This 99-nucleotide RNA from Pan troglodytes belongs to the Rfam family "Y RNA". Lineage of the source: Eukaryota > Craniata > Tetrapoda > Theria > Pan. For this family Rfam cites "Caenorhabditis elegans embryos contain only one major species of Ro RNP" (Van Horn et al., RNA, 1995).

RNA sequence: GGCUGAUCUGAGUGUAAUGGUGUUUACAAUUAAUUGAUUACAACCAGUUACAGAUUUCUUUAUUUCUCCACUCCCACUGCUUCAUUUGACUAGUCUUAA
Dot-bracket structure: (((((.((.((..(.(.(((.(.....(((.((.........................)).)))........)))).)....)..)))).)))))....